[Rfam]
RNA sequence: GAGUCAGCGGCAUGUCGCGAGGUUAACCAUGAGUGUGGGUAGCCGUAGCGAAAGCGAAUCCUAACUAGGGUGAGUGUUAGUGGCAUGUCCUGGACCCGAAGCGGAGUGAUCUACCCAUGGCCAGUGUGAAGCAGCUGUAAGAGGUUGUGGAGGCGCGAACCCACUUAGGUUGAAAACUGAGGGGAUGAGCUGUGGGUAGGGGUGAAAGGCCAAUCAAACUCCGUGAUAGCUGGUU
Numbered sequence: 001g002a003g004u005c006a007g008c009g010g011c012a013u014g015u016c017g018c019g020a021g022g023u024u025a026a027c028c029a030u031g032a033g034u035g036u037g038g039g040u041a042g043c044c045g046u047a048g049c050g051a052a053a054g055c056g057a058a059u060c061c062u063a064a065c066u067a068g069g070g071u072g073a074g075u076g077u078u079a080g081u082g083g084c085a086u087g088u089c090c091u092g093g094a095c096c097c098g099a100a101g102c103g104g105a106g107u108g109a110u111c112u113a114c115c116c117a118u119g120g121c122c123a124g125u126g127u128g129a130a131g132c133a134g135c136u137g138u139a140a141g142a143g144g145u146u147g148u149g150g151a152g153g154c155g156c157g158a159a160c161c162c163a164c165u166u167a168g169g170u171u172g173a174a175a176a177c178u179g180a181g182g183g184g185a186u187g188a189g190c191u192g193u194g195g196g197u198a199g200g201g202g203u204g205a206a207a208g209g210c211c212a213a214u215c216a217a218a219c220u221c222c223g224u225g226a227u228a229g230c231u232g233g234u235u
Base pairs, nucleotide, nucleotide: 005092006091007090009089010088011087012086013085014084015083016082017081018080021044022043023042024041027038028037029036048055049054058071059070060069061068095233096232098230102223103222104221105220106219107218111199112198113197114196115195116194117193118192119191120190121189122187124156125155126154127153131148132147133146134145135144136143160184161183162182164181165180166179167178168177201211202210203209
RNA: Bacterial large subunit ribosomal RNA, nucleotides 704 to 938